[Rfam]
RNA sequence: CCCUGACAGUCACACAUGUGACUGACAUUCGCCAAGACAGGAGACUCACAUG
Numbered sequence: 001c002c003c004u005g006a007c008a009g010u011c012a013c014a015c016a017u018g019u020g021a022c023u024g025a026c027a028u029u030c031g032c033c034a035a036g037a038c039a040g041g042a043g044a045c046u047c048a049c050a051u052g
Base pairs, nucleotide, nucleotide: 002041003040004039005038007024008023009022010021011020

This 52-nucleotide sequence belongs to the Rfam family "Mu-gpT-DE RNA". The sequence is in the family's curated seed alignment. Pairs were carried over by alignment from the consensus structure, which is taken from published work.